[Rfam]
The family of this 400-nucleotide sequence from Vanrija humicola is "RNase MRP". Rfam describes the family as follows. RNase MRP is an enzymatically active ribonucleoprotein with two distinct roles in eukaryotes. In mitochondria it plays a direct role in the initiation of mitochondrial DNA replication. In the nucleus it is involved in precursor rRNA processing, where it cleaves the internal transcribed spacer 1 between 18S and 5.8S rRNAs. Despite distinct functions, RNase MRP has been shown to be evolutionarily related to RNase P. Like eukaryotic RNase P, RNase MRP is not catalytically active without associated protein subunits. Rfam classes the family as a ribozyme.
RNA sequence: CACAAGCUCCACGAACCGCUAUCGCAGCACACGCACGGCGGCCUGUCCGCCAACCUAAGCUGUGGGUAAAGUCCCCGGAGCCUCGCGCGCCGCGGGCCGCGCCGCCAGGCCCCGCAGUGGAGAGCACGCGCCCCCCAGACGGCGCAGCAGCGGGCCUGGCUCUGCCUUCCGGCGCGCGGCGUGUCGCUCUUUCGAGUUGACCUCCGCGCCCGCCGGCGGCGCGGCUGCCACCCCCGCUCCCUAGCGUCUGGCGAAGAUACGAGCCGCCGCAUCCCCGGGGGCGGGCACGCAACGCGGCCGACGACCAAGCGCGCUCAUAGGAACAGUCAUGCGGUUGCCCCGGUCCUGCGGCGACCAGCUGCAGGCGGGGUUACUCGAUGGGGCUUAUUCUGGAGCUUGU
Numbered sequence: 001c002a003c004a005a006g007c008u009c010c011a012c013g014a015a016c017c018g019c020u021a022u023c024g025c026a027g028c029a030c031a032c033g034c035a036c037g038g039c040g041g042c043c044u045g046u047c048c049g050c051c052a053a054c055c056u057a058a059g060c061u062g063u064g065g066g067u068a069a070a071g072u073c074c075c076c077g078g079a080g081c082c083u084c085g086c087g088c089g090c091c092g093c094g095g096g097c098c099g100c101g102c103c104g105c106c107a108g109g110c111c112c113c114g115c116a117g118u119g120g121a122g123a124g125c126a127c128g129c130g131c132c133c134c135c136c137a138g139a140c141g142g143c144g145c146a147g148c149a150g151c152g153g154g155c156c157u158g159g160c161u162c163u164g165c166c167u168u169c170c171g172g173c174g175c176g177c178g179g180c181g182u183g184u185c186g187c188u189c190u191u192u193c194g195a196g197u198u199g200a201c202c203u204c205c206g207c208g209c210c211c212g213c214c215g216g217c218g219g220c221g222c223g224g225c226u227g228c229c230a231c232c233c234c235c236g237c238u239c240c241c242u243a244g245c246g247u248c249u250g251g252c253g254a255a256g257a258u259a260c261g262a263g264c265c266g267c268c269g270c271a272u273c274c275c276c277g278g279g280g281g282c283g284g285g286c287a288c289g290c291a292a293c294g295c296g297g298c299c300g301a302c303g304a305c306c307a308a309g310c311g312c313g314c315u316c317a318u319a320g321g322a323a324c325a326g327u328c329a330u331g332c333g334g335u336u337g338c339c340c341c342g343g344u345c346c347u348g349c350g351g352c353g354a355c356c357a358g359c360u361g362c363a364g365g366c367g368g369g370g371u372u373a374c375u376c377g378a379u380g381g382g383g384c385u386u387a388u389u390c391u392g393g394a395g396c397u398u399g400u
Stems, first nucleotide, its partner, number of pairs: 002400010014336006022065007037051005069386003073383004086130004204224006226291003233285009338370005
The source organism's lineage runs through Eukaryota, Opisthokonta, Basidiomycota, Agaricomycotina and Vanrija.